[Rfam]
RNA: Ascomycota telomerase RNA, nucleotides 1349 to 1792
Organism: Chaetomium globosum
RNA sequence: AUACAUACGGAGAGACAUUGGCUGGGCGGCCGACCACUGGGAUUUGCGACUCUGGUUGCCGGUUUUGACGAGAUCUGCAUCGACGACAGAGGGCUUCGACUACGGGUUUAACGGUGCGGCGGAUUGGGGCAUGUUGUGAGGGAUCGGCUGGGCUGGGGGUGUUCGGUUGGCUGCCUGAGAACCAAUGCUUCAAGCCGGGUGCUCCGGAUGAAGGGUGGUUGGUUGCGACGGACCAGGCACCGGGACCCAUCUUGAGUUGGAGUCAAAGCUUCGUGCUUGUCUGGUUGUCCGGAACCCGUCUCUUCUGGCUGCCCGGAUUCUCGUGUUCUUCGGCGAGGGCUUUGCUGUUCGCAGUCAGCUAGUUGGAAAAGGACGGGCCCACGGGGGCGGUCCUGGCUGUCCUCCCUCCAGGAAUGGCGGGAGGGCAGUCCCUCUUUUUUGAGG
Numbered sequence: 001a002u003a004c005a006u007a008c009g010g011a012g013a014g015a016c017a018u019u020g021g022c023u024g025g026g027c028g029g030c031c032g033a034c035c036a037c038u039g040g041g042a043u044u045u046g047c048g049a050c051u052c053u054g055g056u057u058g059c060c061g062g063u064u065u066u067g068a069c070g071a072g073a074u075c076u077g078c079a080u081c082g083a084c085g086a087c088a089g090a091g092g093g094c095u096u097c098g099a100c101u102a103c104g105g106g107u108u109u110a111a112c113g114g115u116g117c118g119g120c121g122g123a124u125u126g127g128g129g130c131a132u133g134u135u136g137u138g139a140g141g142g143a144u145c146g147g148c149u150g151g152g153c154u155g156g157g158g159g160u161g162u163u164c165g166g167u168u169g170g171c172u173g174c175c176u177g178a179g180a181a182c183c184a185a186u187g188c189u190u191c192a193a194g195c196c197g198g199g200u201g202c203u204c205c206g207g208a209u210g211a212a213g214g215g216u217g218g219u220u221g222g223u224u225g226c227g228a229c230g231g232a233c234c235a236g237g238c239a240c241c242g243g244g245a246c247c248c249a250u251c252u253u254g255a256g257u258u259g260g261a262g263u264c265a266a267a268g269c270u271u272c273g274u275g276c277u278u279g280u281c282u283g284g285u286u287g288u289c290c291g292g293a294a295c296c297c298g299u300c301u302c303u304u305c306u307g308g309c310u311g312c313c314c315g316g317a318u319u320c321u322c323g324u325g326u327u328c329u330u331c332g333g334c335g336a337g338g339g340c341u342u343u344g345c346u347g348u349u350c351g352c353a354g355u356c357a358g359c360u361a362g363u364u365g366g367a368a369a370a371g372g373a374c375g376g377g378c379c380c381a382c383g384g385g386g387g388c389g390g391u392c393c394u395g396g397c398u399g400u401c402c403u404c405c406c407u408c409c410a411g412g413a414a415u416g417g418c419g420g421g422a423g424g425g426c427a428g429u430c431c432c433u434c435u436u437u438u439u440u441g442a443g444g
Stems, first nucleotide, its partner, number of pairs: 244264003247260003266278004
Dot-bracket structure: ...................................................................................................................................................................................................................................................((((((........))).))).((((.....))))......................................................................................................................................................................